[Rfam]
RNA sequence: CCAAUAUAGCGCCUCCGAGCCGUAUUUCCUGUGGAGUGAAUCUCUAUGGACUGCGGCCGUCAGGGUAUGCCUGGAAACGGGCAUGCCUCCCGUGUUUGGCAAGGAGGACGGAAAAAACCGCG
Numbered sequence: 001c002c003a004a005u006a007u008a009g010c011g012c013c014u015c016c017g018a019g020c021c022g023u024a025u026u027u028c029c030u031g032u033g034g035a036g037u038g039a040a041u042c043u044c045u046a047u048g049g050a051c052u053g054c055g056g057c058c059g060u061c062a063g064g065g066u067a068u069g070c071c072u073g074g075a076a077a078c079g080g081g082c083a084u085g086c087c088u089c090c091c092g093u094g095u096u097u098g099g100c101a102a103g104g105a106g107g108a109c110g111g112a113a114a115a116a117a118c119c120g121c122g
Base pairs, nucleotide, nucleotide: 012107013106014105015104016103019057020056021055022054023053024052027050028049029048033045034044035043036042063088064087065086066085067084068083069082070081071080072079073078089099090098